Annotation
Rfam assigns this 300-nucleotide RNA sequence from Steatornis caripensis to the family "7SK RNA". Rfam describes the family as follows. 7SK was discovered as an abundant small nuclear RNA in the mid-70s but a possible function has only recently been suggested. The family's RNA type in Rfam is non-coding RNA gene. The family's consensus secondary structure is taken from published work. On this family, see Wassarman and Steitz, Mol Cell Biol 1991: "Structural analyses of the 7SK ribonucleoprotein (RNP), the most abundant human small RNP of unknown function". The family has 45 seed sequences and 49,373 matches in Rfam 15.1.
[Rfam]
RNA sequence: GGAUGUGAGGGCGAUCUGGCUGCGACAUCUGUCACCCCAUUGAUCGCCAGGGUUGAUUCGGCUGAUCUGGCUGGCUAGGCGGGUGUCCCCUUCCUCCCUCACCGCUCCAUGUGCGUCCCUCCCGAAGCUGCGCGCUCGGUCGAAGAGGACGACCUUCCCCGAUAGAGACGUACCGUUCAUCGGUCAAGGGUAUACUGUAGCUGCGCUCCCCUGCUAGAACCUCCAAACAAGCUCAGUGUAGCUGGAACUAUAUGAAGUUCAACCUGUCAAUUCACAGUCCUUGCUAUUAGACCUAUCUUG
Numbered sequence: 001g002g003a004u005g006u007g008a009g010g011g012c013g014a015u016c017u018g019g020c021u022g023c024g025a026c027a028u029c030u031g032u033c034a035c036c037c038c039a040u041u042g043a044u045c046g047c048c049a050g051g052g053u054u055g056a057u058u059c060g061g062c063u064g065a066u067c068u069g070g071c072u073g074g075c076u077a078g079g080c081g082g083g084u085g086u087c088c089c090c091u092u093c094c095u096c097c098c099u100c101a102c103c104g105c106u107c108c109a110u111g112u113g114c115g116u117c118c119c120u121c122c123c124g125a126a127g128c129u130g131c132g133c134g135c136u137c138g139g140u141c142g143a144a145g146a147g148g149a150c151g152a153c154c155u156u157c158c159c160c161g162a163u164a165g166a167g168a169c170g171u172a173c174c175g176u177u178c179a180u181c182g183g184u185c186a187a188g189g190g191u192a193u194a195c196u197g198u199a200g201c202u203g204c205g206c207u208c209c210c211c212u213g214c215u216a217g218a219a220c221c222u223c224c225a226a227a228c229a230a231g232c233u234c235a236g237u238g239u240a241g242c243u244g245g246a247a248c249u250a251u252a253u254g255a256a257g258u259u260c261a262a263c264c265u266g267u268c269a270a271u272u273c274a275c276a277g278u279c280c281u282u283g284c285u286a287u288u289a290g291a292c293c294u295a296u297c298u299u300g
Base pairs, nucleotide, nucleotide: 001108002107003106005102006101007100008099009098010097011096013093014092018090019089024087025086026085027084028083029082030081031080032079033078035074036073037070038069039068042067043066044065045064046062047061048060117170119167120166121165122139123138124137125136127135128134140162141161142160147158148157149156200264202262207257210254212252213251222246223245224244231243